Rfam assigns this 99-nucleotide RNA sequence from Alteromonadaceae bacterium Bs31 to the family "t44 RNA". Lineage of the source: Bacteria > Pseudomonadati > Pseudomonadota > Gammaproteobacteria > Alteromonadaceae. The family's consensus secondary structure was predicted with LocARNA. The match comes from Rfam's covariance-model search (77 bits).
RNA sequence: AAUACACCAUUAAAACGUCGCACAUAUAUCGACACACCUGCCUGGGUGCCCAUUACCGUUAUGUAAGGGGUUGGCUGGUGGGAUAUAUGGAGGCCUAAC
Numbered sequence: 001a002a003u004a005c006a007c008c009a010u011u012a013a014a015a016c017g018u019c020g021c022a023c024a025u026a027u028a029u030c031g032a033c034a035c036a037c038c039u040g041c042c043u044g045g046g047u048g049c050c051c052a053u054u055a056c057c058g059u060u061a062u063g064u065a066a067g068g069g070g071u072u073g074g075c076u077g078g079u080g081g082g083a084u085a086u087a088u089g090g091a092g093g094c095c096u097a098a099c
Stems, first nucleotide, its partner, number of pairs: 023089008035080004040075003048071004
Dot-bracket structure: ......................((((((((....((((.(((.....((((................)))).))).)))).))))))))..........